The family of this 325-nucleotide sequence from Cavia porcellus is "7SK RNA".
The family has 45 seed sequences and 49,373 matches in Rfam 15.1.

RNA sequence: AGAUUUGAGGGCGAUCUGGCUGAGACAUCUGUCACCCCAUUGAUCGCCAGGGUUGAUUCGGCUGAUCUGGCUGGCUAGGCGGGUGUCCCCUUCCUCCCUCAACGAUCCAUGUGCGUCCCUCCCGAAGCUGCGCGCUCGGUCGAAGAGGACGACCACCCCCGAUAGAGGAGGACCGUUCCUCGGUCCAGGGUAUACAAGUAGCUGCGCUCCCCUGCUAGAACCUCCAAACAAGCUCUCAACGUUCCCCUAAUUAUUAACCUAGAUCGUAGGAGACAUGCAUUAUAAAUAUAUCUUCAUGAAAAUUCUCAGAAAGCAUCUUUUCUAA
Numbered sequence: 001a002g003a004u005u006u007g008a009g010g011g012c013g014a015u016c017u018g019g020c021u022g023a024g025a026c027a028u029c030u031g032u033c034a035c036c037c038c039a040u041u042g043a044u045c046g047c048c049a050g051g052g053u054u055g056a057u058u059c060g061g062c063u064g065a066u067c068u069g070g071c072u073g074g075c076u077a078g079g080c081g082g083g084u085g086u087c088c089c090c091u092u093c094c095u096c097c098c099u100c101a102a103c104g105a106u107c108c109a110u111g112u113g114c115g116u117c118c119c120u121c122c123c124g125a126a127g128c129u130g131c132g133c134g135c136u137c138g139g140u141c142g143a144a145g146a147g148g149a150c151g152a153c154c155a156c157c158c159c160c161g162a163u164a165g166a167g168g169a170g171g172a173c174c175g176u177u178c179c180u181c182g183g184u185c186c187a188g189g190g191u192a193u194a195c196a197a198g199u200a201g202c203u204g205c206g207c208u209c210c211c212c213u214g215c216u217a218g219a220a221c222c223u224c225c226a227a228a229c230a231a232g233c234u235c236u237c238a239a240c241g242u243u244c245c246c247c248u249a250a251u252u253a254u255u256a257a258c259c260u261a262g263a264u265c266g267u268a269g270g271a272g273a274c275a276u277g278c279a280u281u282a283u284a285a286a287u288a289u290a291u292c293u294u295c296a297u298g299a300a301a302a303u304u305c306u307c308a309g310a311a312a313g314c315a316u317c318u319u320u321u322c323u324a325a
Base pairs, nucleotide, nucleotide: 002107003106005102006101007100008099009098010097011096013093014092018090019089024087025086026085027084028083029082030081031080032079033078035074036073037070038069039068042067043066044065045064046062047061048060116171117170118168119167120166121165122139123138124137125136127135128134140162141161142160147158148157201278202277207272208271211270212269213268214267215266222262223261294325296323298320299319300318302316303313304312306310
By type it is a non-coding RNA gene. The base pairs follow the family's consensus structure, which is taken from published work. It scores 271 bits against the family's covariance model. NCBI's taxonomy places the organism under Eukaryota, Craniata, Mammalia, Theria, Cavia.